[Rfam]
RNA sequence: GUGAUAUCCAGAAAGGUGGAGGGACGGGCCCUGUGAAACCUUGGCAACCUGCGAAAGCAAGGUGCCAAUUCCUGCCGCGAGUCCUCGCGGAGAGAUGCUGA
Numbered sequence: 001g002u003g004a005u006a007u008c009c010a011g012a013a014a015g016g017u018g019g020a021g022g023g024a025c026g027g028g029c030c031c032u033g034u035g036a037a038a039c040c041u042u043g044g045c046a047a048c049c050u051g052c053g054a055a056a057g058c059a060a061g062g063u064g065c066c067a068a069u070u071c072c073u074g075c076c077g078c079g080a081g082u083c084c085u086c087g088c089g090g091a092g093a094g095a096u097g098c099u100g101a
Base pairs, nucleotide, nucleotide: 002100003099005097006096007095008094013042014041015040016039017038021031022030023029025074026073027072028071043066044065045064046063048062049061050059051058052057070093075090076089077088078087079086080085
A member of the RNA family "SAM riboswitch aptamer (S box leader)" from Geothrix sp., 101 nucleotides long. The source organism's lineage runs through Bacteria, Pseudomonadati, Acidobacteriota, Holophagaceae and Geothrix. Rfam links the family to the GO term regulation of gene expression. Rfam's curators write: The SAM riboswitch is found upstream of a number of genes which code for proteins involved in methionine or cysteine biosynthesis in Gram-positive bacteria. It scores 80 bits against the family's covariance model.